[Rfam]
RNA sequence: CCAGACGGCCGGAUGGCCGCCGUCGCCGCCUGAGGCGCGCGGCGGAGGAAAGUCCGGGCUCCACGGAAGCACGGAGCCGGGUAACACCCGGCGGGGGCGACCCCAGGGAAAGUGCCACAGAGAGCAGACCGCUCGCUCAGGGUCGCAAGGCCGGCGAGCAAGGGUGAAAGGGUGCGGUAAGAGCGCACCGCGCACCCGGCAACGGGUGCGGCAUGGCAAACCCCUCCGGGAGCAAGACCAAGUAGGGGCGGCGCGGGGCGGUCGCAGGAUCGCACCAAGUCGGUUUCCGGACCUGCCGCCCGGGUCGGUCGCGCGAGGCGCCCGGUGACGGGCGUCCCAGAUGAAUGGCCAUCGCGUGGGCGGACGCCCACGGACAGAACCCGGCUUACAGGCCGUCUGGCACC
Numbered sequence: 001c002c003a004g005a006c007g008g009c010c011g012g013a014u015g016g017c018c019g020c021c022g023u024c025g026c027c028g029c030c031u032g033a034g035g036c037g038c039g040c041g042g043c044g045g046a047g048g049a050a051a052g053u054c055c056g057g058g059c060u061c062c063a064c065g066g067a068a069g070c071a072c073g074g075a076g077c078c079g080g081g082u083a084a085c086a087c088c089c090g091g092c093g094g095g096g097g098c099g100a101c102c103c104c105a106g107g108g109a110a111a112g113u114g115c116c117a118c119a120g121a122g123a124g125c126a127g128a129c130c131g132c133u134c135g136c137u138c139a140g141g142g143u144c145g146c147a148a149g150g151c152c153g154g155c156g157a158g159c160a161a162g163g164g165u166g167a168a169a170g171g172g173u174g175c176g177g178u179a180a181g182a183g184c185g186c187a188c189c190g191c192g193c194a195c196c197c198g199g200c201a202a203c204g205g206g207u208g209c210g211g212c213a214u215g216g217c218a219a220a221c222c223c224c225u226c227c228g229g230g231a232g233c234a235a236g237a238c239c240a241a242g243u244a245g246g247g248g249c250g251g252c253g254c255g256g257g258g259c260g261g262u263c264g265c266a267g268g269a270u271c272g273c274a275c276c277a278a279g280u281c282g283g284u285u286u287c288c289g290g291a292c293c294u295g296c297c298g299c300c301c302g303g304g305u306c307g308g309u310c311g312c313g314c315g316a317g318g319c320g321c322c323c324g325g326u327g328a329c330g331g332g333c334g335u336c337c338c339a340g341a342u343g344a345a346u347g348g349c350c351a352u353c354g355c356g357u358g359g360g361c362g363g364a365c366g367c368c369c370a371c372g373g374a375c376a377g378a379a380c381c382c383g384g385c386u387u388a389c390a391g392g393c394c395g396u397c398u399g400g401c402a403c404c
Stems, first nucleotide, its partner, number of pairs: 001400010011389001012353007020045007050387003054384005059232004069287001072228005077091005092106001093104004107223002112221002114217003129163002131159007171189006190212001191210008236310004246301006282293004317336008
Bacterial RNase P class A: a 404-nucleotide RNA sequence.
The match comes from Rfam's covariance-model search (273 bits).
Rfam links the family to the GO terms dimeric ribonuclease P complex, tRNA processing and ribonuclease P activity.
It is annotated as a ribozyme.